[Rfam]
RNA sequence: UUGCAAUCCGCCAACCGGCUGAGCCGGGCCGCGGAAGGUUGAUCAACCCAUCGUAGCUUCGGAAACCGAAGCGAAAGGUGAGCG
Number, nucleotide and partner (000 for none) at each position: 001u000002u084003g083004c082005a000006a000007u035008c034009c033010g032011c031012c000013a000014a000015c000016c026017g025018g024019c023020u000021g000022a000023g019024c018025c017026g016027g000028g000029c000030c000031g011032c010033g009034g008035a007036a000037g048038g047039u046040u045041g000042a000043u000044c000045a040046a039047c038048c037049c080050a079051u078052c077053g000054u000055a000056g072057c071058u070059u069060c068061g067062g066063a000064a000065a000066c062067c061068g060069a059070a058071g057072c056073g000074a000075a000076a000077g052078g051079u050080g049081a000082g004083c003084g002

Background:
Rfam assigns this 84-nucleotide RNA sequence from Scleromatobacter humisilvae to the family "SucA RNA motif". Its family is annotated with regulation of translation in the Gene Ontology. A search with the family's covariance model found it, with a score of 84 bits. Pairs were carried over by alignment from the consensus structure, which is taken from published work.